RNA sequence: ACACGAGAAGGGAGGUGGUUCGGGACAUGAUUUCUUUCCGGACGCGUGAGGUGACUGCGGGCUAGCGCCCGUCGUCGCGUAUCUACGCAGCGCCGGCUCCGCCGGCCAAUCCCAGGCAGUCACCCGAUCCGUGGGCCGCCGAGUCGUCCGCUCGGCACCACCACGCUCGCGCUGUGCGAGUGCGGCGGUAGCGGCCCACGGAUCGUCU
Numbered sequence: 001a002c003a004c005g006a007g008a009a010g011g012g013a014g015g016u017g018g019u020u021c022g023g024g025a026c027a028u029g030a031u032u033u034c035u036u037u038c039c040g041g042a043c044g045c046g047u048g049a050g051g052u053g054a055c056u057g058c059g060g061g062c063u064a065g066c067g068c069c070c071g072u073c074g075u076c077g078c079g080u081a082u083c084u085a086c087g088c089a090g091c092g093c094c095g096g097c098u099c100c101g102c103c104g105g106c107c108a109a110u111c112c113c114a115g116g117c118a119g120u121c122a123c124c125c126g127a128u129c130c131g132u133g134g135g136c137c138g139c140c141g142a143g144u145c146g147u148c149c150g151c152u153c154g155g156c157a158c159c160a161c162c163a164c165g166c167u168c169g170c171g172c173u174g175u176g177c178g179a180g181u182g183c184g185g186c187g188g189u190a191g192c193g194g195c196c197c198a199c200g201g202a203u204c205g206u207c208u
Stems, first nucleotide, its partner, number of pairs: 015058005060107004065102002069096003073092003125205013138156006

Description:
A member of the RNA family "Actinobacteria sRNA Ms_IGR-5" from Streptomyces triculaminicus, 208 nucleotides long. Pairs were carried over by alignment from the consensus structure. The organism belongs to Streptomyces, within Bacteria.